[Rfam]
RNA sequence: UCCAGGAGCAGGUGAGCCACUGACUAACGCACAUUGUGCUGCUCGUGUCCCCACUGUGCGUGUGACAGCGGCUAACCAGCUUUUCGGACAUCCCUGU
Number, nucleotide and partner (000 for none) at each position: 001u000002c000003c000004a000005g083006g082007a081008g080009c079010a000011g077012g076013u000014g000015a073016g072017c071018c070019a000020c068021u067022g066023a000024c064025u062026a061027a000028c060029g059030c058031a057032c056033a055034u000035u053036g052037u000038g000039c000040u000041g000042c000043u000044c000045g000046u000047g000048u000049c000050c000051c000052c036053a035054c000055u033056g032057u031058g030059c029060g028061u026062g025063u000064g024065a000066c022067a021068g020069c000070g018071g017072c016073u015074a000075a000076c012077c011078a000079g009080c008081u007082u006083u005084u000085c000086g000087g000088a000089c000090a000091u000092c000093c000094c000095u000096g000097u000